[Rfam]
About this RNA: The family of this 183-nucleotide RNA from Enterorhabdus sp. P55 is "FMN riboswitch aptamer (RFN element)". The match comes from Rfam's covariance-model search (84 bits). The RFN element is a highly conserved domain that is found frequently in the 5'-untranslated regions of prokaryotic mRNAs that encode for flavin mononucleotide (FMN) biosynthesis and transport proteins. The source organism's lineage runs through Bacteria, Bacillati, Actinomycetota, Eggerthellales and Enterorhabdus.
RNA sequence: AUUCUGUUUCAGGGCGGGGUGGAACUCCCCACUGGCGGUAAGCGGAAGGCGACGCGACGGCUCCAGCCCCGCGCGCACCGCGAGUCCGCGACCCGGGACGGCGGCCCUUCGGGGCGCAUCGGCCCGGCUGACCCGGUGAGACUCCGGGACCAACGGUCACAGUCCGGAUGGAAGAGGCAGACU
Numbered sequence: 001a002u003u004c005u006g007u008u009u010c011a012g013g014g015c016g017g018g019g020u021g022g023a024a025c026u027c028c029c030c031a032c033u034g035g036c037g038g039u040a041a042g043c044g045g046a047a048g049g050c051g052a053c054g055c056g057a058c059g060g061c062u063c064c065a066g067c068c069c070c071g072c073g074c075g076c077a078c079c080g081c082g083a084g085u086c087c088g089c090g091a092c093c094c095g096g097g098a099c100g101g102c103g104g105c106c107c108u109u110c111g112g113g114g115c116g117c118a119u120c121g122g123c124c125c126g127g128c129u130g131a132c133c134c135g136g137u138g139a140g141a142c143u144c145c146g147g148g149a150c151c152a153a154c155g156g157u158c159a160c161a162g163u164c165c166g167g168a169u170g171g172a173a174g175a176g177g178c179a180g181a182c183u
Base pairs, nucleotide, nucleotide: 003181004180005179006178007177008176009175010174017029018028019027031163032162033152034151035081036080037079038078084128085127086126132148133147134146135145136144154166155165156164
Dot-bracket structure: ..((((((((......(((.......))).[[((((((.......................................))))..(((.......................................)))...(((((.......)))))..)).(((.....]]))).......))))))))..